[Rfam]
RNA sequence: UGGGAGGAAGCCGAAAAUCCCUUCAAAAGAGUAAGCG
Number, nucleotide and partner (000 for none) at each position: 001u000002g021003g020004g019005a018006g000007g000008a000009a000010g036011c035012c000013g000014a000015a000016a000017a000018u005019c004020c003021c002022u000023u000024c000025a000026a000027a000028a000029g000030a000031g000032u000033a000034a000035g011036c010037g000

The record is a 37-nucleotide RNA sequence from Echinicola vietnamensis, which matches "DUF805b RNA" in Rfam.
The family's RNA type in Rfam is cis-regulatory element.